[Rfam]
RNA sequence: GCCGCAUUAUCGCCGAGUCCUGCUGCGGCAGGAGCGGGGGACCCACUCUUACGGGGCGAAGCGCAGCAGCUUGCGCAGGGCUAUUCUCUUCGGCCCCAGCCCGUCAGCUAACCUCGCAGGCGUUGAAGGGGCGAACC
Numbered sequence: 001g002c003c004g005c006a007u008u009a010u011c012g013c014c015g016a017g018u019c020c021u022g023c024u025g026c027g028g029c030a031g032g033a034g035c036g037g038g039g040g041a042c043c044c045a046c047u048c049u050u051a052c053g054g055g056g057c058g059a060a061g062c063g064c065a066g067c068a069g070c071u072u073g074c075g076c077a078g079g080g081c082u083a084u085u086c087u088c089u090u091c092g093g094c095c096c097c098a099g100c101c102c103g104u105c106a107g108c109u110a111a112c113c114u115c116g117c118a119g120g121c122g123u124u125g126a127a128g129g130g131g132c133g134a135a136c137c
Stems, first nucleotide, its partner, number of pairs: 011122004018033005034117006044053001054102003062075004078096004
The record is a 137-nucleotide sequence from Candidatus Electronema aureum, which matches "c-di-AMP riboswitch aptamer (ydaO/yuaA leader)" in Rfam. The source organism's lineage runs through Bacteria, Thermodesulfobacteriota, Desulfobulbia, Desulfobulbales and Candidatus Electronema.